[Rfam]
RNA sequence: AAGAUAUAACGGCAAAGCAGUCGAAAGGCUGUGACGCAAAGCUAUAGGGCCUUUGACAUGGCAGCCAGUUGCACAU
Numbered sequence: 001a002a003g004a005u006a007u008a009a010c011g012g013c014a015a016a017g018c019a020g021u022c023g024a025a026a027g028g029c030u031g032u033g034a035c036g037c038a039a040a041g042c043u044a045u046a047g048g049g050c051c052u053u054u055g056a057c058a059u060g061g062c063a064g065c066c067a068g069u070u071g072c073a074c075a076u
Base pairs, nucleotide, nucleotide: 012037013036017032018031019030020029021028022027040070041069042068043067047066048065049062050061051060

Source information:
c-di-GMP-I riboswitch aptamer: a 76-nucleotide sequence from Firmicutes bacterium AF12-30. The organism belongs to Bacillota, within Bacteria.